[Rfam]
Rfam assigns this 77-nucleotide RNA sequence from Calidris pygmaea to the family "Mammalian CPEB3 ribozyme". The match comes from Rfam's covariance-model search (35 bits). The organism belongs to Calidris, within Eukaryota. Pairs were carried over by alignment from the consensus structure, which is taken from published work.

RNA sequence: UUCAUAUAUAACUGGACCCCAGCAGAAAUGCUUACAUUGCCAUCCCUGUCAGAUUCUAUGAAUCUGCAAAUCCUGCU
Dot-bracket structure: .............[[[....(((((.(.((.......))...]]]....(((((((...)))))))....).)))))